[Rfam]
RNA sequence: AAUCAGCACGGGCGUCGAGGAAACUCUACGCCCGUGCACGCAUGUUGAGGGGCAGGAAAAGAAA
Numbered sequence: 001a002a003u004c005a006g007c008a009c010g011g012g013c014g015u016c017g018a019g020g021a022a023a024c025u026c027u028a029c030g031c032c033c034g035u036g037c038a039c040g041c042a043u044g045u046u047g048a049g050g051g052g053c054a055g056g057a058a059a060a061g062a063a064a
Stems, first nucleotide, its partner, number of pairs: 006037009017026003